[Rfam]
RNA sequence: GCAGAGUUGAUUCGUCCUCUGUCGCGGCAACUGCUGUCAUAGCUCCGUACACUGUCAAUACUUUUGACAGAUGGCGGAGC
Number, nucleotide and partner (000 for none) at each position: 001g022002c021003a020004g019005a018006g017007u000008u000009g000010a000011u000012u000013c000014g000015u000016c000017c006018u005019c004020u003021g002022u001023c000024g000025c000026g000027g000028c000029a000030a000031c000032u000033g000034c000035u000036g000037u000038c000039a000040u000041a000042g000043c000044u000045c000046c000047g000048u000049a000050c000051a000052c070053u069054g068055u067056c066057a065058a064059u000060a000061c000062u000063u000064u058065u057066g056067a055068c054069a053070g052071a000072u000073g000074g000075c000076g000077g000078a000079g000080c000
RAGATH-28 RNA: an 80-nucleotide sequence. It is one of the family's seed sequences. The base pairs follow the family's consensus structure, which is taken from published work. The family's RNA type in Rfam is small RNA.